[Rfam]
RNA: U4atac minor spliceosomal RNA
Organism: Musca domestica
RNA sequence: ACCUUCCUUGUCGUGGGGAGCAUAAUACUCAAUGAACGUCUAGUGAGAGUAUUGAUGCUGACACCACAAUAUUUUAACCCCCGUAUGUAUAUUCGUGUACGUACGGAAUUUUUGGAUAU
Number, nucleotide and partner (000 for none) at each position: 001a000002c000003c000004u000005u019006c018007c017008u016009u015010g000011u000012c000013g000014u000015g009016g008017g007018g006019a005020g058021c057022a056023u055024a053025a052026u051027a050028c049029u048030c047031a000032a000033u000034g000035a000036a044037c043038g000039u000040c000041u000042a000043g037044u036045g000046a000047g030048a029049g028050u027051a026052u025053u024054g000055a023056u022057g021058c020059u000060g000061a000062c000063a000064c000065c000066a000067c000068a000069a000070u000071a000072u000073u000074u000075u000076a000077a000078c000079c000080c000081c106082c105083g104084u103085a102086u101087g100088u099089a098090u097091a096092u000093u000094c000095g000096u091097g090098u089099a088100c087101g086102u085103a084104c083105g082106g081107a000108a000109u000110u000111u000112u000113u000114g000115g000116a000117u000118a000119u000